[Rfam]
RNA sequence: GUUUCGGAUUCAUCUCAAUUCACAUGUGCUGGGGUGGAUUGGAGUGAAAUUUAGUUUAAGUUCCACUCCAAUCCAUCCCAAUACACGUGGAUUAAUGUGAAUCCGACU
Numbered sequence: 001g002u003u004u005c006g007g008a009u010u011c012a013u014c015u016c017a018a019u020u021c022a023c024a025u026g027u028g029c030u031g032g033g034g035u036g037g038a039u040u041g042g043a044g045u046g047a048a049a050u051u052u053a054g055u056u057u058a059a060g061u062u063c064c065a066c067u068c069c070a071a072u073c074c075a076u077c078c079c080a081a082u083a084c085a086c087g088u089g090g091a092u093u094a095a096u097g098u099g100a101a102u103c104c105g106a107c108u
Base pairs, nucleotide, nucleotide: 004106005105006104007103008102009101010100011099012098013097015095017093018092019091020090021089022088023087025085026084027083028082030080031079034076035075036074037073038072039071040070041069042068044066045065046064
Rfam assigns this 108-nucleotide RNA sequence from Miscanthus lutarioriparius to the family "MIR5565 microRNA precursor family". The source organism's lineage runs through Eukaryota, Viridiplantae, Poaceae, Saccharinae and Miscanthus. The match comes from Rfam's covariance-model search (91 bits). The base pairs follow the family's consensus structure, which was predicted with RNAalifold. The family has 7 seed sequences and 3,346 matches in Rfam 15.1.